[Rfam]
Nucleotides: 360
Base pairs, nucleotide, nucleotide: 004022005021006020007019073281074280075279076278077277079275080274084215085214086213087212088211089210094206095205096204216261217260221256222255223254224253230248232246233245265339267338268337269336270335271334283325284324285323290318291317345358346357347356348355349354
Number, partner (000 for none) and nucleotide at each position: 001000g002000u003000a004022u005021u006020a007019c008000a009000g010000u011000a012000c013000u014000u015000c016000g017000u018000a019007g020006u021005a022004a023000g024000c025000c026000a027000g028000u029000u030000a031000g032000u033000a034000g035000a036000u037000g038000u039000g040000a041000a042000c043000c044000a045000u046000c047000u048000g049000c050000u051000a052000g053000u054000c055000g056000u057000c058000g059000c060000a061000c062000c063000g064000c065000g066000u067000c068000g069000g070000c071000a072000a073281a074280a075279c076278c077277g078000u079275c080274a081000a082000a083000u084215u085214g086213c087212g088211g089210g090000a091000a092000g093000g094206c095205c096204c097000u098000a099000a100000a101000g102000c103000a104000a105000u106000u107000u108000c109000a110000a111000c112000c113000a114000a115000a116000c117000u118000a119000a120000c121000c122000u123000a124000g125000u126000a127000a128000u129000a130000g131000a132000g133000u134000u135000g136000g137000u138000g139000g140000c141000a142000c143000a144000g145000g146000u147000a148000a149000u150000g151000a152000c153000u154000c155000g156000u157000g158000g159000u160000a161000u162000g163000g164000u165000a166000a167000a168000a169000u170000c171000g172000a173000a174000a175000u176000u177000g178000a179000u180000u181000a182000u183000c184000u185000g186000u187000a188000u189000g190000a191000u192000u193000u194000a195000c196000a197000g198000a199000u200000g201000a202000a203000u204096g205095g206094g207000u208000a209000a210089u211088c212087c213086g214085c215084a216261g217260c218000c219000a220000a221256g222255u223254a224253u225000c226000c227000u228000u229000u230248u231000c232246u233245u234000u235000c236000a237000a238000u239000a240000u241000u242000u243000u244000g245233a246232a247000a248230a249000u250000a251000a252000g253224g254223u255222a256221u257000g258000c259000a260217g261216u262000u263000c264000a265339u266000c267338g268337a269336c270335u271334a272000g273000a274080u275079g276000g277077u278076g279075g280074u281073u282000g283325g284324c285323u286000u287000u288000g289000u290318u291317u292000u293000u294000c295000u296000u297000u298000a299000u300000u301000c302000a303000u304000u305000a306000g307000u308000a309000a310000u311000a312000a313000a314000g315000a316000a317291a318290a319000u320000a321000u322000u323285a324284g325283c326000u327000u328000a329000a330000g331000g332000u333000a334271u335270a336269g337268u338267c339265a340000u341000g342000c343000c344000c345358c346357a347356u348355u349354u350000g351000a352000a353000a354349g355348a356347a357346u358345g359000a360000u
Notes
The record is a 360-nucleotide RNA sequence from Xylaria multiplex, which matches "Group I catalytic intron" in Rfam. Gene Ontology term of the family: Group I intron splicing. For this family Rfam cites "Self-splicing of group I introns" (Cech, Annu Rev Biochem, 1990). NCBI's taxonomy places the organism under Eukaryota, Opisthokonta, Fungi, Pezizomycotina, Xylaria.